[Rfam]
This 194-nucleotide RNA from Rhodamnia argentea belongs to the Rfam family "U2 spliceosomal RNA". NCBI's taxonomy places the organism under Eukaryota, Streptophyta, eudicotyledons, Gunneridae, Rhodamnia. Rfam 15.1 lists 71,512 matches to the family in 2,642 species. It scores 128 bits against the family's covariance model. By type it is a spliceosomal small nuclear RNA. Pairs were carried over by alignment from the consensus structure, which is taken from published work. U2 is a small nuclear RNA (snRNA) component of the spliceosome (involved in pre-mRNA splicing). Complementary binding between U2 snRNA (in an area lying towards the 5' end but 3' to hairpin I) and the branchpoint sequence (BPS) of the intron results the bulging out of an unpaired adenosine, on the BPS, which initiates a nucleophilic attack at the intronic 5' splice site, thus starting the first of two transesterification reactions that mediate splicing.
RNA sequence: AUCGCUUCUCGGCCUUAUGGCUAAGAUCAAAGUGUAGUAUCUGUUCUUCCUAGUUUGACAACUACGGACGAGUCCAAUAGGACUCGAACAUGUCAAAAAGAAUAUUUGCUCGGGGGCGAGAUGGCCGGCUUGCUGGCCUCCUCGCCGCGGAUUGCCUCUGCAUUGCACUCCUUGCGGUUGGCGGUCCACCCUUU
Numbered sequence: 001a002u003c004g005c006u007u008c009u010c011g012g013c014c015u016u017a018u019g020g021c022u023a024a025g026a027u028c029a030a031a032g033u034g035u036a037g038u039a040u041c042u043g044u045u046c047u048u049c050c051u052a053g054u055u056u057g058a059c060a061a062c063u064a065c066g067g068a069c070g071a072g073u074c075c076a077a078u079a080g081g082a083c084u085c086g087a088a089c090a091u092g093u094c095a096a097a098a099a100g101a102a103u104a105u106u107u108g109c110u111c112g113g114g115g116g117c118g119a120g121a122u123g124g125c126c127g128g129c130u131u132g133c134u135g136g137c138c139u140c141c142u143c144g145c146c147g148c149g150g151a152u153u154g155c156c157u158c159u160g161c162a163u164u165g166c167a168c169u170c171c172u173u174g175c176g177g178u179u180g181g182c183g184g185u186c187c188a189c190c191c192u193u194u
Stems, first nucleotide, its partner, number of pairs: 007026003011022004048068003051064003070085006115146006125136004149187006158177004